[Rfam]
RNA sequence: AGUAAUAUAUGUAAUAUAUAAAAAUUGUUUGGACUCGGGGGGCAGAACCCGACGCCUCCACCAGAAAGAUCUUGGGGGCGAAUUAGGCUCGACAGGCAGGGAUAGUAUAUUAUUUUUACUGGGGAAUGUUUUACCUCGCGCGUUAGCGUAAACAAAAUAAAAAGUAAAUGGCACUAUUGUUGCUAAUAAUGUAACGAAACUUGCUGAUGCUGCUAAA
Numbered sequence: 001a002g003u004a005a006u007a008u009a010u011g012u013a014a015u016a017u018a019u020a021a022a023a024a025u026u027g028u029u030u031g032g033a034c035u036c037g038g039g040g041g042g043c044a045g046a047a048c049c050c051g052a053c054g055c056c057u058c059c060a061c062c063a064g065a066a067a068g069a070u071c072u073u074g075g076g077g078g079c080g081a082a083u084u085a086g087g088c089u090c091g092a093c094a095g096g097c098a099g100g101g102a103u104a105g106u107a108u109a110u111u112a113u114u115u116u117u118a119c120u121g122g123g124g125a126a127u128g129u130u131u132u133a134c135c136u137c138g139c140g141c142g143u144u145a146g147c148g149u150a151a152a153c154a155a156a157a158u159a160a161a162a163a164g165u166a167a168a169u170g171g172c173a174c175u176a177u178u179g180u181u182g183c184u185a186a187u188a189a190u191g192u193a194a195c196g197a198a199a200c201u202u203g204c205u206g207a208u209g210c211u212g213c214u215a216a217a
Base pairs, nucleotide, nucleotide: 001120002119003118004117005116014110015109016108017107026098027097028096029095030094031093035052036051037050038049039048053080054079055078056077057076058075059074121136122135123134
RNA: permuted transfer-messenger RNA
Organism: Rickettsiales bacterium